[Rfam]
RNA sequence: UGAGCGGUAUCGUAAAGUCUGGUGACCCCGGUCACUCGUAGAGUGUCCUAGCCUCGCUGGAAUGCGGUGGGAAAUACUGAAAUCAAGGCCCAGGGUGAGCCGCUCA
Numbered sequence: 001u002g003a004g005c006g007g008u009a010u011c012g013u014a015a016a017g018u019c020u021g022g023u024g025a026c027c028c029c030g031g032u033c034a035c036u037c038g039u040a041g042a043g044u045g046u047c048c049u050a051g052c053c054u055c056g057c058u059g060g061a062a063u064g065c066g067g068u069g070g071g072a073a074a075u076a077c078u079g080a081a082a083u084c085a086a087g088g089c090c091c092a093g094g095g096u097g098a099g100c101c102g103c104u105c106a
Stems, first nucleotide, its partner, number of pairs: 001106007010098003018094005026088002033045005052070002054067004
DUF3800-III RNA: a 106-nucleotide RNA sequence. Rfam classes the family as a small RNA. Pairs were carried over by alignment from the consensus structure, which is taken from published work. The match comes from Rfam's covariance-model search (89 bits).